[Rfam]
RNA sequence: UGGUGAUGAUGAAGUUUACUCCAAAACAUUCGCGGUUUCCACCAGAAGAACUGCUCUUGUUCUAAAGAUGGCCCAAUUGCCCUUCCUUGGAUGUCUGAACCA
Numbered sequence: 001u002g003g004u005g006a007u008g009a010u011g012a013a014g015u016u017u018a019c020u021c022c023a024a025a026a027c028a029u030u031c032g033c034g035g036u037u038u039c040c041a042c043c044a045g046a047a048g049a050a051c052u053g054c055u056c057u058u059g060u061u062c063u064a065a066a067g068a069u070g071g072c073c074c075a076a077u078u079g080c081c082c083u084u085c086c087u088u089g090g091a092u093g094u095c096u097g098a099a100c101c102a
Base pairs, nucleotide, nucleotide: 001102002101003100004099048062049061050060051059
The record is a 102-nucleotide RNA from Candidula unifasciata, which matches "Small nucleolar RNA SNORD14" in Rfam.
A search with the family's covariance model found it, with a score of 68 bits.
Rfam's curators write: U14 small nucleolar RNA (U14 snoRNA) is required for early cleavages of eukaryotic precursor rRNAs.
By type it is a C/D-box small nucleolar RNA.